Rfam assigns this 135-nucleotide sequence from Mus spicilegus to the family "Small Cajal body specific RNA 24". Taxonomically the source falls in Mus (Eukaryota, Metazoa, Gnathostomata, Muridae). Rfam's curators write: scaRNAs are a specific class of small nuclear RNAs which localise to the Cajal bodies and guide the modification of RNA polymerase II transcribed spliceosomal RNAs U1, U2, U4, U5 and U12. ACA12 belongs to the H/ACA box class of guide RNAs as it has the predicted hairpin-hinge-hairpin-tail structure,the conserved H/ACA-box motifs and is found associated with GAR1. The family's RNA type in Rfam is small Cajal body RNA. The family's consensus secondary structure was predicted with RNAfold.
RNA sequence: UGCACAUUUAUAUUGGCAGAUUCUUCUUGAGGUGAAGAUAAUGUUUUUUUUUUAAUGAAUGUCCUAGAGAAAUAUAAUAGCUUUGUGUUCAUCCUUUUUGAGAAGAGAGGGUGAAUCAUACCUCUACUGACAUUC
Numbered sequence: 001u002g003c004a005c006a007u008u009u010a011u012a013u014u015g016g017c018a019g020a021u022u023c024u025u026c027u028u029g030a031g032g033u034g035a036a037g038a039u040a041a042u043g044u045u046u047u048u049u050u051u052u053u054a055a056u057g058a059a060u061g062u063c064c065u066a067g068a069g070a071a072a073u074a075u076a077a078u079a080g081c082u083u084u085g086u087g088u089u090c091a092u093c094c095u096u097u098u099u100g101a102g103a104a105g106a107g108a109g110g111g112u113g114a115a116u117c118a119u120a121c122c123u124c125u126a127c128u129g130a131c132a133u134u135c
Base pairs, nucleotide, nucleotide: 002064004062005061006060007059008058009057010056011055020044021040022038023037024036025035026034075129076128078126079125080124094109095108096107097106